[Rfam]
RNA sequence: UGCCCUCGGGCACUCCUUCAACCUCCCUGUUGGACUCAGGCCGGGCCUCGUGCCCGGCUUUUUUU
Numbered sequence: 001u002g003c004c005c006u007c008g009g010g011c012a013c014u015c016c017u018u019c020a021a022c023c024u025c026c027c028u029g030u031u032g033g034a035c036u037c038a039g040g041c042c043g044g045g046c047c048u049c050g051u052g053c054c055c056g057g058c059u060u061u062u063u064u065u
Stems, first nucleotide, its partner, number of pairs: 001012004039059008
Record summary
This 65-nucleotide sequence from Paracoccus sp. S-4012 belongs to the Rfam family "Singlet oxygen resistance RNA X". By type it is a small RNA. Gene Ontology term of the family: response to photooxidative stress.